[Rfam]
RNA: Glycine riboswitch aptamer
Organism: Basilea psittacipulmonis
RNA sequence: UAAUAGCACUCUGGAGAGUUCUGACUUAUCGAAUGAAUAAGAUUCAGACGCCGAAGGUGAUUAACUCUCAGGCACAAGGACAGAGGGGGCAUA
Numbered sequence: 001u002a003a004u005a006g007c008a009c010u011c012u013g014g015a016g017a018g019u020u021c022u023g024a025c026u027u028a029u030c031g032a033a034u035g036a037a038u039a040a041g042a043u044u045c046a047g048a049c050g051c052c053g054a055a056g057g058u059g060a061u062u063a064a065c066u067c068u069c070a071g072g073c074a075c076a077a078g079g080a081c082a083g084a085g086g087g088g089g090c091a092u093a
Stems, first nucleotide, its partner, number of pairs: 007087001009085005020048004050073003053069002057067001059065001